[Rfam]
RNA: Streptomyces sRNA 4677
RNA sequence: CCCCCCGGCGCCGCCCAACACCCCUCAAACCCAAGGAGGAAGAACCCUUCCCAACCCCACCCCCACCCCCUCACCCCAUCGGGUGACGCGCUGACACAUGCCGGGAGCGGCGCGGUACGGUCGCGCCACGCGACAACCGAAAAACGACGACGGCCCCCGCCGGGACGGGCAUCCCGGGCGAGGGCCUGAUCAUCGAGGAAGGAAUGAGCUUCCCU
Numbered sequence: 001c002c003c004c005c006c007g008g009c010g011c012c013g014c015c016c017a018a019c020a021c022c023c024c025u026c027a028a029a030c031c032c033a034a035g036g037a038g039g040a041a042g043a044a045c046c047c048u049u050c051c052c053a054a055c056c057c058c059a060c061c062c063c064c065a066c067c068c069c070c071u072c073a074c075c076c077c078a079u080c081g082g083g084u085g086a087c088g089c090g091c092u093g094a095c096a097c098a099u100g101c102c103g104g105g106a107g108c109g110g111c112g113c114g115g116u117a118c119g120g121u122c123g124c125g126c127c128a129c130g131c132g133a134c135a136a137c138c139g140a141a142a143a144a145c146g147a148c149g150a151c152g153g154c155c156c157c158c159g160c161c162g163g164g165a166c167g168g169g170c171a172u173c174c175c176g177g178g179c180g181a182g183g184g185c186c187u188g189a190u191c192a193u194c195g196a197g198g199a200a201g202g203a204a205u206g207a208g209c210u211u212c213c214c215u
Base pairs, nucleotide, nucleotide: 007194008193010191071086072085073084074083075082076081152186153185154184155183156182158180159179160178162175163174164173165172197213198212199211200210201209